[Rfam]
RNA sequence: CUUCACCGAACCCAGCCACAGCGGCUGACCCUCGGCGCGCUUCUUGCCGUAGGUCGCCAGCAGGGCCUGCGCCUC
Numbered sequence: 001c002u003u004c005a006c007c008g009a010a011c012c013c014a015g016c017c018a019c020a021g022c023g024g025c026u027g028a029c030c031c032u033c034g035g036c037g038c039g040c041u042u043c044u045u046g047c048c049g050u051a052g053g054u055c056g057c058c059a060g061c062a063g064g065g066c067c068u069g070c071g072c073c074u075c
Stems, first nucleotide, its partner, number of pairs: 014026004031071001033069001038065001043060002047056001049054001
RNA: ASpks TB sRNA